Description
The record is a 121-nucleotide sequence from Sinomicrobium soli, which matches "6S-Flavo RNA" in Rfam. A search with the family's covariance model found it, with a score of 99 bits.
[Rfam]
RNA sequence: ACUCAACAUUAUUCAAAUUAAAAAGGGUGAGUUGCGGUUGUAAAAGCAUGCCGUUGCCGGUUUUCCGGACAGGACGGAUCCUUGAUCAGCCGGUUAGCCCUAAACUUGUCUAUAGGAGUUU
Numbered sequence: 001a002c003u004c005a006a007c008a009u010u011a012u013u014c015a016a017a018u019u020a021a022a023a024a025g026g027g028u029g030a031g032u033u034g035c036g037g038u039u040g041u042a043a044a045a046g047c048a049u050g051c052c053g054u055u056g057c058c059g060g061u062u063u064u065c066c067g068g069a070c071a072g073g074a075c076g077g078a079u080c081c082u083u084g085a086u087c088a089g090c091c092g093g094u095u096a097g098c099c100c101u102a103a104a105c106u107u108g109u110c111u112a113u114a115g116g117a118g119u120u121u
Stems, first nucleotide, its partner, number of pairs: 024101005035092005044083003051077004
Lineage of the source: Bacteria > Bacteroidota > Flavobacteriales > Flavobacteriaceae > Sinomicrobium.